The record is a 79-nucleotide RNA sequence from Alligator mississippiensis, which matches "Mammalian CPEB3 ribozyme" in Rfam. The family's consensus secondary structure is taken from published work.
[Rfam]
RNA sequence: AAAGGUCACAAGUUUGAGGCCAUAGCAGAAGUGCUUAUGCUGCGGCCUGUCAGAUUCCAAUGAAUCUGAGAAUUCCAUU
Numbered sequence: 001a002a003a004g005g006u007c008a009c010a011a012g013u014u015u016g017a018g019g020c021c022a023u024a025g026c027a028g029a030a031g032u033g034c035u036u037a038u039g040c041u042g043c044g045g046c047c048u049g050u051c052a053g054a055u056u057c058c059a060a061u062g063a064a065u066c067u068g069a070g071a072a073u074u075c076c077a078u079u
Stems, first nucleotide, its partner, number of pairs: 018047004024079002028075003031043003051068007

Overview:
A search with the family's covariance model found it, with a score of 45 bits. The source organism's lineage runs through Eukaryota, Eumetazoa, Teleostomi, Alligatorinae and Alligator. For this family Rfam cites "A genomewide search for ribozymes reveals an HDV-like sequence in the human CPEB3 gene" (Salehi-Ashtiani et al., Science, 2006).